[Rfam]
RNA sequence: CCUUGGAAGGAAGGCAAGAUGCUGGCAUAGCUGUUGAGAUUAGAGCCCUGCUAUGCCAGCAAAUUGCCAUCUUUCUCUCCU
Numbered sequence: 001c002c003u004u005g006g007a008a009g010g011a012a013g014g015c016a017a018g019a020u021g022c023u024g025g026c027a028u029a030g031c032u033g034u035u036g037a038g039a040u041u042a043g044a045g046c047c048c049u050g051c052u053a054u055g056c057c058a059g060c061a062a063a064u065u066g067c068c069a070u071c072u073u074u075c076u077c078u079c080c081u
Stems, first nucleotide, its partner, number of pairs: 005076007013068005020061002023058009
Dot-bracket structure: ....(((((((.(((((..((.(((((((((..................))))))))).))..))))).))))))).....

Rfam assigns this 81-nucleotide RNA sequence from Salarias fasciatus to the family "mir-31 microRNA precursor family". The family has 75 seed sequences and 1,181 matches in Rfam 15.1.